This 47-nucleotide RNA sequence from Pseudescherichia vulneris belongs to the Rfam family "Guanidine-II riboswitch aptamer (mini-ykkC)". The family has 72 seed sequences and 1,589 matches in Rfam 15.1. It scores 42 bits against the family's covariance model. The source organism's lineage runs through Bacteria, Pseudomonadota, Enterobacterales, Pseudescherichia and Pseudescherichia vulneris. Simpler in structure and has fewer highly conserved nucleotide positions than the ykkC-yxkD leader.
RNA sequence: CUUGCGGGACGACCCACAAGCGCCAUGUUUCACCGGGGACGGCCCCA
Numbered sequence: 001c002u003u004g005c006g007g008g009a010c011g012a013c014c015c016a017c018a019a020g021c022g023c024c025a026u027g028u029u030u031c032a033c034c035g036g037g038g039a040c041g042g043c044c045c046c047a
Base pairs, nucleotide, nucleotide: 001020002019003018004017006015007014008013035046036045037044038043